[Rfam]
RNA: drz-agam-1 ribozyme
Organism: Aedes aegypti
RNA sequence: UGCCCAUCAAUUCCUAUCCCUACCUCCUCGUGGUAUUGGCUGGGAUUACGAGUAACCUUGGGGAAGAUCGGGUUACCAACCCCGGUGGAAACUUUGGUCGUAUGCUGACAGGGAAGG
Numbered sequence: 001u002g003c004c005c006a007u008c009a010a011u012u013c014c015u016a017u018c019c020c021u022a023c024c025u026c027c028u029c030g031u032g033g034u035a036u037u038g039g040c041u042g043g044g045a046u047u048a049c050g051a052g053u054a055a056c057c058u059u060g061g062g063g064a065a066g067a068u069c070g071g072g073u074u075a076c077c078a079a080c081c082c083c084g085g086u087g088g089a090a091a092c093u094u095u096g097g098u099c100g101u102a103u104g105c106u107g108a109c110a111g112g113g114a115a116g117g
Stems, first nucleotide, its partner, number of pairs: 013117003017113003022034003047102005053096002
Dot-bracket structure: ............(((.(((..(((.......)))............(((((.((........................................)).)))))........))).)))